RNA sequence: GGUAUCUGACGGGAACGUUCGUAUAGUACGAGAGGAACUCCGAAUGGGUGCCACUCGUGUACCGGCUGUCCGAGAGGGCACGUGCCGGGCAGCGACGCACCACGGGGUAAGAGCUGAACGCAUCUAAGCUCGAAACCCACCUGAAAAAGAGAUACCACCGAGAUCACUCGUAGAAGACGAGUUCAAUAGACUCGGGGUGUACGCACCGAGGCAACGAGGUGUUGAGCCCGCGAGCACUAACAGAUCGAG
Numbered sequence: 001g002g003u004a005u006c007u008g009a010c011g012g013g014a015a016c017g018u019u020c021g022u023a024u025a026g027u028a029c030g031a032g033a034g035g036a037a038c039u040c041c042g043a044a045u046g047g048g049u050g051c052c053a054c055u056c057g058u059g060u061a062c063c064g065g066c067u068g069u070c071c072g073a074g075a076g077g078g079c080a081c082g083u084g085c086c087g088g089g090c091a092g093c094g095a096c097g098c099a100c101c102a103c104g105g106g107g108u109a110a111g112a113g114c115u116g117a118a119c120g121c122a123u124c125u126a127a128g129c130u131c132g133a134a135a136c137c138c139a140c141c142u143g144a145a146a147a148a149g150a151g152a153u154a155c156c157a158c159c160g161a162g163a164u165c166a167c168u169c170g171u172a173g174a175a176g177a178c179g180a181g182u183u184c185a186a187u188a189g190a191c192u193c194g195g196g197g198u199g200u201a202c203g204c205a206c207c208g209a210g211g212c213a214a215c216g217a218g219g220u221g222u223u224g225a226g227c228c229c230g231c232g233a234g235c236a237c238u239a240a241c242a243g244a245u246c247g248a249g
Stems, first nucleotide, its partner, number of pairs: 001156007010143004016046006023039001047101005055095003062088005067080005104138003111131005162246004166182005187239003191234004195229003203222005210215001
Rfam assigns this 249-nucleotide part of an RNA from Natronosalvus rutilus to the family "Archaeal large subunit ribosomal RNA". The source organism's lineage runs through Archaea, Methanobacteriati, Methanobacteriota, Halobacteriales and Natronosalvus.